The family of this 97-nucleotide RNA sequence from Amborella trichopoda is "Plastid-rps12 3UTR RNA". Pairs were carried over by alignment from the consensus structure, which was predicted with LocARNA. About the family: Plastid rpl20 is a non-coding RNA (ncRNA) recognised in plastids. Rfam classes the family as a cis-regulatory element.
Nucleotides: 097
Base pairs, nucleotide, nucleotide: 009023010022011021012020052087053086054085056078057077059075060074061073062072064070
Number, partner (000 for none) and nucleotide at each position: 001000g002000g003000u004000u005000u006000c007000c008000a009023u010022u011021g012020g013000u014000g015000c016000a017000a018000a019000u020012c021011c022010a023009a024000u025000c026000a027000u028000c029000u030000c031000g032000a033000c034000g035000u036000g037000a038000g039000a040000u041000a042000a043000a044000a045000a046000g047000c048000a049000a050000u051000u052087u053086c054085u055000c056078a057077u058000c059075g060074g061073u062072a063000g064070c065000a066000a067000a068000c069000a070064g071000g072062u073061a074060u075059c076000c077057a078056u079000u080000a081000a082000g083000c084000a085054g086053g087052g088000g089000a090000a091000a092000u093000g094000g095000u096000a097000u